Shown here is a 150-nucleotide sequence from Paracoccus liaowanqingii, a member of the family "Ruegeria cis2 sRNA". On this family, see Rivers et al., Front Microbiol 2016: "Experimental Identification of Small Non-Coding RNAs in the Model Marine Bacterium Ruegeria pomeroyi DSS-3". Its family is annotated with regulation of gene expression in the Gene Ontology.
[Rfam]
RNA sequence: GGUCCGGUGCGGCGAAUAGUUGAUGAACAGGUAGCCGCGUUCCUGGUCGAUCAGAUGGAACAGGGGGUUCCACGAGAACCAGGGAAGCAUGAAGCCGGGCAGGGCAUUUGCGACGAACAUCUUGCCCGAGAAGAUCAUGUUGAUCCGCUG
Numbered sequence: 001g002g003u004c005c006g007g008u009g010c011g012g013c014g015a016a017u018a019g020u021u022g023a024u025g026a027a028c029a030g031g032u033a034g035c036c037g038c039g040u041u042c043c044u045g046g047u048c049g050a051u052c053a054g055a056u057g058g059a060a061c062a063g064g065g066g067g068u069u070c071c072a073c074g075a076g077a078a079c080c081a082g083g084g085a086a087g088c089a090u091g092a093a094g095c096c097g098g099g100c101a102g103g104g105c106a107u108u109u110g111c112g113a114c115g116a117a118c119a120u121c122u123u124g125c126c127c128g129a130g131a132a133g134a135u136c137a138u139g140u141u142g143a144u145c146c147g148c149u150g
Stems, first nucleotide, its partner, number of pairs: 002032003007028002011024001013022003037051001038049002041046001061150003065146001067079004083144001086141006096130001098127002100124005107116002